[Rfam]
RNA: Small nucleolar RNA SNORD59
RNA sequence: UCUUCCGUGAUGGUCAUACAUUGACUUUCGUUCUUCUGAGUUUAAUGAAGCCAACAUUUCUGUACUGAGAAGA
Numbered sequence: 001u002c003u004u005c006c007g008u009g010a011u012g013g014u015c016a017u018a019c020a021u022u023g024a025c026u027u028u029c030g031u032u033c034u035u036c037u038g039a040g041u042u043u044a045a046u047g048a049a050g051c052c053a054a055c056a057u058u059u060c061u062g063u064a065c066u067g068a069g070a071a072g073a
Stems, first nucleotide, its partner, number of pairs: 001073003005069001